Overview: The record is a 98-nucleotide RNA sequence from Plasticicumulans lactativorans, which matches "TPP riboswitch aptamer (THI element)" in Rfam. Taxonomically the source falls in Plasticicumulans (Bacteria, Pseudomonadota, Gammaproteobacteria, Candidatus Competibacteraceae). Its family is annotated with thiamine pyrophosphate binding in the Gene Ontology. From the family's description: Vitamin B(1) in its active form thiamin pyrophosphate (TPP) is an essential coenzyme that is synthesised by coupling of pyrimidine and thiazole moieties in bacteria.
[Rfam]
RNA sequence: GGAUCGAAGCGGGGGUGCGCCCGGAACCGGGCGCUGAGAUAAACCCUUUGAACCUGAACCGGUUAGUACCGGCGUAGGGAAGCUUCGGCGCGUCGAUC
Numbered sequence: 001g002g003a004u005c006g007a008a009g010c011g012g013g014g015g016u017g018c019g020c021c022c023g024g025a026a027c028c029g030g031g032c033g034c035u036g037a038g039a040u041a042a043a044c045c046c047u048u049u050g051a052a053c054c055u056g057a058a059c060c061g062g063u064u065a066g067u068a069c070c071g072g073c074g075u076a077g078g079g080a081a082g083c084u085u086c087g088g089c090g091c092g093u094c095g096a097u098c
Stems, first nucleotide, its partner, number of pairs: 006086005011047004016041001017034005053078004059072004